RNA: Bacterial large subunit ribosomal RNA, nucleotides 2168 to 2756
Organism: uncultured bacterium OMZ60_11L23
RNA sequence: CCCGCGGAAAGACGGAAAGACCCCGUGAACCUUUACUGUAGCUUAUUAUUGGAUUUUGGCGCAGUAUGUGUAGGAUAGGUGGGAGACGAGGAAGUUUCGACGUAAGUUGGAAUGGAGUCAAUGGUGAAAUACCACUCUUACUUUGUUAAAAUUCUAAAGGAAUACCGUGAAUCCGGGUUCUUGACAGUGGUAAGUGGGCAGUUUGACUGGGGCGGUCUCCUCCGAAAAAGUAACGGAGGAGUCCAAAGGCUCCCUCAAUGCGGUUGGCAACCGCAUGUAGAGUGUAAAGGCAUAAGGGAGCUUAACUGCGAGACCCAUAAGUCGAGCAGGUGUGAAAGCAGGGCUUAGUGAUCCGGCGGUUUCUGAGUGGAAAGGCCGUCGCUCAACAGAUAAAAGGUACUCCGGGGAUAACAGGCUGAUCUCCUCCGAGCGUUCAUAGCGGCGAGGAGGUUUGGCACCUCGAUGUCGGCUCAUCGCAUCCUGGGGCUGAAGAAGGUCCCAAGGGUUUGGGAGUUCACCAAUUAAAGCGGUACGCGAGCUGGGUUUAGACCGUCGUGAGACAGGUCGGUCCCUAUCUUCCGUGGGCGUA
Numbered sequence: 001c002c003c004g005c006g007g008a009a010a011g012a013c014g015g016a017a018a019g020a021c022c023c024c025g026u027g028a029a030c031c032u033u034u035a036c037u038g039u040a041g042c043u044u045a046u047u048a049u050u051g052g053a054u055u056u057u058g059g060c061g062c063a064g065u066a067u068g069u070g071u072a073g074g075a076u077a078g079g080u081g082g083g084a085g086a087c088g089a090g091g092a093a094g095u096u097u098c099g100a101c102g103u104a105a106g107u108u109g110g111a112a113u114g115g116a117g118u119c120a121a122u123g124g125u126g127a128a129a130u131a132c133c134a135c136u137c138u139u140a141c142u143u144u145g146u147u148a149a150a151a152u153u154c155u156a157a158a159g160g161a162a163u164a165c166c167g168u169g170a171a172u173c174c175g176g177g178u179u180c181u182u183g184a185c186a187g188u189g190g191u192a193a194g195u196g197g198g199c200a201g202u203u204u205g206a207c208u209g210g211g212g213c214g215g216u217c218u219c220c221u222c223c224g225a226a227a228a229a230g231u232a233a234c235g236g237a238g239g240a241g242u243c244c245a246a247a248g249g250c251u252c253c254c255u256c257a258a259u260g261c262g263g264u265u266g267g268c269a270a271c272c273g274c275a276u277g278u279a280g281a282g283u284g285u286a287a288a289g290g291c292a293u294a295a296g297g298g299a300g301c302u303u304a305a306c307u308g309c310g311a312g313a314c315c316c317a318u319a320a321g322u323c324g325a326g327c328a329g330g331u332g333u334g335a336a337a338g339c340a341g342g343g344c345u346u347a348g349u350g351a352u353c354c355g356g357c358g359g360u361u362u363c364u365g366a367g368u369g370g371a372a373a374g375g376c377c378g379u380c381g382c383u384c385a386a387c388a389g390a391u392a393a394a395a396g397g398u399a400c401u402c403c404g405g406g407g408a409u410a411a412c413a414g415g416c417u418g419a420u421c422u423c424c425u426c427c428g429a430g431c432g433u434u435c436a437u438a439g440c441g442g443c444g445a446g447g448a449g450g451u452u453u454g455g456c457a458c459c460u461c462g463a464u465g466u467c468g469g470c471u472c473a474u475c476g477c478a479u480c481c482u483g484g485g486g487c488u489g490a491a492g493a494a495g496g497u498c499c500c501a502a503g504g505g506u507u508u509g510g511g512a513g514u515u516c517a518c519c520a521a522u523u524a525a526a527g528c529g530g531u532a533c534g535c536g537a538g539c540u541g542g543g544u545u546u547a548g549a550c551c552g553u554c555g556u557g558a559g560a561c562a563g564g565u566c567g568g569u570c571c572c573u574a575u576c577u578u579c580c581g582u583g584g585g586c587g588u589a
Stems, first nucleotide, its partner, number of pairs: 001585008010577003014572002022406004027402002029398005035202004042194007051154011063142004068137001078136005085119003094113008158182003162179001165176003205217004218240006241387001243343002249301006255281002258276006282291002306329004312323003331340003354381007363374002415456003419453001420450007430440002467542001468540004472534001473531005480505002483500006507521004548566004552561003